[Rfam]
Description
Rfam assigns this 402-nucleotide sequence from Solicola gregarius to the family "Bacterial RNase P class A". Rfam classes the family as a ribozyme. Taxonomically the source falls in Solicola (Bacteria, Bacillati, Actinomycetes, Propionibacteriales). A search with the family's covariance model found it, with a score of 280 bits.
RNA sequence: UGAGUCGGUGGGGCGGCCGCGUCGGGCGGUUCGCCGCCCGCCGAGGAAGGUCCGGACUCUACAGAGCAGGGUGGUGGGUAACGCCCACCCGAGGUGACUCGCGGGACAGUGCCACAGAAAAUAGACCGCCAGCGGCCGCGCCGGCUUCGCCGGUGCGGUGCGGGUAAGGGUGAAACGGUGGUGUAAGAGACCACCAGCGUCUCGGGCGACCGAGACGGCUCGGUAAACCCCACCCGGAGCAAGACCAAGAGGACCCGCUUGCGGGUCUGCGCUGACGUACGAGGGCUGCUCGCCCGAGUCAGCGGGUAGGUCGCUGGAGCGCAUCGGCAACGGUGCGCCUAGAGAGAUGGUCGUCGGGUGCCCGUGCACCCACAGGAUCCGGCCUACAAGCCGGCUCAUCCG
Numbered sequence: 001u002g003a004g005u006c007g008g009u010g011g012g013g014c015g016g017c018c019g020c021g022u023c024g025g026g027c028g029g030u031u032c033g034c035c036g037c038c039c040g041c042c043g044a045g046g047a048a049g050g051u052c053c054g055g056a057c058u059c060u061a062c063a064g065a066g067c068a069g070g071g072u073g074g075u076g077g078g079u080a081a082c083g084c085c086c087a088c089c090c091g092a093g094g095u096g097a098c099u100c101g102c103g104g105g106a107c108a109g110u111g112c113c114a115c116a117g118a119a120a121a122u123a124g125a126c127c128g129c130c131a132g133c134g135g136c137c138g139c140g141c142c143g144g145c146u147u148c149g150c151c152g153g154u155g156c157g158g159u160g161c162g163g164g165u166a167a168g169g170g171u172g173a174a175a176c177g178g179u180g181g182u183g184u185a186a187g188a189g190a191c192c193a194c195c196a197g198c199g200u201c202u203c204g205g206g207c208g209a210c211c212g213a214g215a216c217g218g219c220u221c222g223g224u225a226a227a228c229c230c231c232a233c234c235c236g237g238a239g240c241a242a243g244a245c246c247a248a249g250a251g252g253a254c255c256c257g258c259u260u261g262c263g264g265g266u267c268u269g270c271g272c273u274g275a276c277g278u279a280c281g282a283g284g285g286c287u288g289c290u291c292g293c294c295c296g297a298g299u300c301a302g303c304g305g306g307u308a309g310g311u312c313g314c315u316g317g318a319g320c321g322c323a324u325c326g327g328c329a330a331c332g333g334u335g336c337g338c339c340u341a342g343a344g345a346g347a348u349g350g351u352c353g354u355c356g357g358g359u360g361c362c363c364g365u366g367c368a369c370c371c372a373c374a375g376g377a378u379c380c381g382g383c384c385u386a387c388a389a390g391c392c393g394g395c396u397c398a399u400c401c402g
Base pairs, nucleotide, nucleotide: 001398002397003396004395005394006393007392008391009390011387012355013354014353015352016351017350018349020043021042023040024039025038026037027036028035048385049384050383052382053381054380055379056378057239058238059237060236064291065290066289067288069235070234071233072232073231074088075087076086077085078084089103090101091100092099093098104230105229109228110227111224112223113222126169127168128165129164130163132161133160134159136157177195178194179193180192181191182190197219198217199216200215201214202213203212204211205210243312244311245310246309271303272302273301274300275299276298283295284294285293286292319338320337321336322335323334324333325332326331